Rfam assigns this 248-nucleotide RNA sequence from Rhodamnia argentea to the family "Early nodulin 40".
A search with the family's covariance model found it, with a score of 118 bits.
Gene Ontology term of the family: nodulation.

RNA sequence: AUGGAAGGCUUUUGGCAGGUAUCUCUCCACGGGUCUUGAAAAAGAAGCAAUUGGCUAUAUGGGGAUGGAGAGGGAUUCCUCUCACUCCUCAUGAACAUCCAUCAGUUUGCCAGGACUUUAACCAAUAGCAUCGGCACCCGUCGGGCCGCAUCAGAGGGAGUUUCCAACUAACAGAGACGGAGGCUUUUGGGUAUCGCCCUGGCAAACCGGCAAGUCACACAACGGCAACGGACUCAGUCUCGAGUCUU
Numbered sequence: 001a002u003g004g005a006a007g008g009c010u011u012u013u014g015g016c017a018g019g020u021a022u023c024u025c026u027c028c029a030c031g032g033g034u035c036u037u038g039a040a041a042a043a044g045a046a047g048c049a050a051u052u053g054g055c056u057a058u059a060u061g062g063g064g065a066u067g068g069a070g071a072g073g074g075a076u077u078c079c080u081c082u083c084a085c086u087c088c089u090c091a092u093g094a095a096c097a098u099c100c101a102u103c104a105g106u107u108u109g110c111c112a113g114g115a116c117u118u119u120a121a122c123c124a125a126u127a128g129c130a131u132c133g134g135c136a137c138c139c140g141u142c143g144g145g146c147c148g149c150a151u152c153a154g155a156g157g158g159a160g161u162u163u164c165c166a167a168c169u170a171a172c173a174g175a176g177a178c179g180g181a182g183g184c185u186u187u188u189g190g191g192u193a194u195c196g197c198c199c200u201g202g203c204a205a206a207c208c209g210g211c212a213a214g215u216c217a218c219a220c221a222a223c224g225g226c227a228a229c230g231g232a233c234u235c236a237g238u239c240u241c242g243a244g245u246c247u248u
Base pairs, nucleotide, nucleotide: 066093067092105207106206107205108204109203110202111201112200113199114198231246232245233244234243235242